[Rfam]
RNA sequence: CCGCCCGUCGCUGCUACCGAUUGGGUUUCGCGGUUACGUAUUCGGAGAUUCUUUCAACUGCUGCCGCAAGGCGGCGGGCGACUGGGUCUAAGUCUAAAUUACCGCACGGCCUAGAGGAAGCAGAAGUCGUAACAAGGUAAUCGUAGGUGAACCUGCAGAAGGAUCAAGC
Numbered sequence: 001c002c003g004c005c006c007g008u009c010g011c012u013g014c015u016a017c018c019g020a021u022u023g024g025g026u027u028u029c030g031c032g033g034u035u036a037c038g039u040a041u042u043c044g045g046a047g048a049u050u051c052u053u054u055c056a057a058c059u060g061c062u063g064c065c066g067c068a069a070g071g072c073g074g075c076g077g078g079c080g081a082c083u084g085g086g087u088c089u090a091a092g093u094c095u096a097a098a099u100u101a102c103c104g105c106a107c108g109g110c111c112u113a114g115a116g117g118a119a120g121c122a123g124a125a126g127u128c129g130u131a132a133c134a135a136g137g138u139a140a141u142c143g144u145a146g147g148u149g150a151a152c153c154u155g156c157a158g159a160a161g162g163a164u165c166a167a168g169c
Stems, first nucleotide, its partner, number of pairs: 001136001003133001006129002009126001011123005017117002021113001023112005030105005039096002043092001046089006054081002059076006138161001141158001143156005

Rfam assigns this 169-nucleotide part of an RNA to the family "Eukaryotic small subunit ribosomal RNA". Its family is annotated with ribosome and structural constituent of ribosome in the Gene Ontology. The literature on the family includes a 2001 paper in Science by Yusupov et al., "Crystal structure of the ribosome at 5.5 A resolution".